[Rfam]
A member of the RNA family "Burkholderia sRNA 2" from Trinickia terrae, 134 nucleotides long. The literature on the family includes a 2017 paper in Microbiology by Ghosh et al., "Identification of novel small RNAs in Burkholderia cenocepacia KC-01 expressed under iron limitation and oxidative stress conditions". Rfam's curators write: Upregulated in response to iron ion depletion. Predicted targets include MerR family transcriptional regulator. A search with the family's covariance model found it, with a score of 72 bits.
RNA sequence: AUGAGUGCCUGUCCACCCCAUUUUUUUCGCUGCCGCGCCGGCCUCACGGCCAAUGUAGAGGUCCUGGUCGCCAGGCGCCGCGCGAUUAUCGAAGUCGAGCCGCUAGCCCCGGUCACGGGGCAGCGGCUUUUUUG
Numbered sequence: 001a002u003g004a005g006u007g008c009c010u011g012u013c014c015a016c017c018c019c020a021u022u023u024u025u026u027u028c029g030c031u032g033c034c035g036c037g038c039c040g041g042c043c044u045c046a047c048g049g050c051c052a053a054u055g056u057a058g059a060g061g062u063c064c065u066g067g068u069c070g071c072c073a074g075g076c077g078c079c080g081c082g083c084g085a086u087u088a089u090c091g092a093a094g095u096c097g098a099g100c101c102g103c104u105a106g107c108c109c110c111g112g113u114c115a116c117g118g119g120g121c122a123g124c125g126g127c128u129u130u131u132u133u134g
Base pairs, nucleotide, nucleotide: 007038008037009035011033012032014029045084047082048081051077054074060069061068062067086097088095089094098128099127100126101125102124103123106121107120108119109118110117
By type it is a small RNA.